[Rfam]
RNA sequence: CGCUGUAGCGUACGAAGGGUAAGGCAUACUGGACGCGGGUUCGAUUCCCGCCGGCUCCACCAUCGACGGGGCCGACCUGGUUUCGACAGGGUGAGAUAGCCGGAGUAUCAGCGGGAAAGGCGACCGGCCUUAACGGCGCAAAACCGAUAAAUGCAAACGCAGAUAUCUACGACGAUCGCAAAUAUGCCUAA
Numbered sequence: 001c002g003c004u005g006u007a008g009c010g011u012a013c014g015a016a017g018g019g020u021a022a023g024g025c026a027u028a029c030u031g032g033a034c035g036c037g038g039g040u041u042c043g044a045u046u047c048c049c050g051c052c053g054g055c056u057c058c059a060c061c062a063u064c065g066a067c068g069g070g071g072c073c074g075a076c077c078u079g080g081u082u083u084c085g086a087c088a089g090g091g092u093g094a095g096a097u098a099g100c101c102g103g104a105g106u107a108u109c110a111g112c113g114g115g116a117a118a119g120g121c122g123a124c125c126g127g128c129c130u131u132a133a134c135g136g137c138g139c140a141a142a143a144c145c146g147a148u149a150a151a152u153g154c155a156a157a158c159g160c161a162g163a164u165a166u167c168u169a170c171g172a173c174g175a176u177c178g179c180a181a182a183u184a185u186g187c188c189u190a191a
Stems, first nucleotide, its partner, number of pairs: 001113005017101002025093003029089003035051005052074007114129002
permuted transfer-messenger RNA: a 191-nucleotide RNA from Paludibacterium paludis. Bacterial tmRNA, also known as 10Sa RNA or SsrA, is named for its dual tRNA and mRNA-like properties. Rfam classes the family as a non-coding RNA gene. The match comes from Rfam's covariance-model search (120 bits).